TPP riboswitch aptamer (THI element): a 108-nucleotide RNA sequence from Zongyangia hominis. NCBI's taxonomy places the organism under Bacteria, Bacillati, Bacillota, Oscillospiraceae, Zongyangia. A search with the family's covariance model found it, with a score of 67 bits. The family's consensus secondary structure is taken from published work.

[Rfam]
Nucleotides: 108
Stems, first nucleotide, its partner, number of pairs: 007095004011059004016053001017031005039052004065089004071082003
Number, partner (000 for none) and nucleotide at each position: 001000g002000c003000a004000g005000a006000a007095g008094a009093a010092c011059u012058g013057g014056g015000g016053a017031g018030c019029c020028a021027a022000u023000g024000a025000a026000a027021u028020u029019g030018g031017c032000u033000g034000a035000g036000a037000g038000u039052g040051a041050g042049g043000u044000g045000u046000u047000g048000u049042c050041c051040u052039c053016u054000u055000a056014c057013u058012c059011a060000u061000u062000g063000a064000a065089c066088c067087u068086g069000u070000a071082c072081g073080g074000u075000u076000a077000a078000g079000a080073c081072c082071g083000g084000c085000g086068u087067a088066g089065g090000g091000a092010g093009u094008u095007u096000c097000g098000c099000g100000u101000a102000u103000u104000u105000g106000a107000u108000a